Annotation: Mammalian CPEB3 ribozyme: a 77-nucleotide RNA from Crocodylus porosus. NCBI's taxonomy places the organism under Eukaryota, Euteleostomi, Archelosauria, Crocodylidae, Crocodylus. A search with the family's covariance model found it, with a score of 38 bits. Pairs were carried over by alignment from the consensus structure, which is taken from published work. Rfam describes the family as follows. The mammalian CPEB3 ribozyme is a self cleaving RNA located in the second intron of the CPEB3 gene which belongs to a family of genes regulating messenger RNA polyadenylation.

[Rfam]
RNA sequence: GGUUGUAAGCUUGAGGCGACAGCAGAAGUGUUUAUGGCAUAGCCUUGUGAGAUUCCAACAAAACUGUGAAUUCUGCC
Numbered sequence: 001g002g003u004u005g006u007a008a009g010c011u012u013g014a015g016g017c018g019a020c021a022g023c024a025g026a027a028g029u030g031u032u033u034a035u036g037g038c039a040u041a042g043c044c045u046u047g048u049g050a051g052a053u054u055c056c057a058a059c060a061a062a063a064c065u066g067u068g069a070a071u072u073c074u075g076c077c
Stems, first nucleotide, its partner, number of pairs: 014045004022076006028040003050065002053062002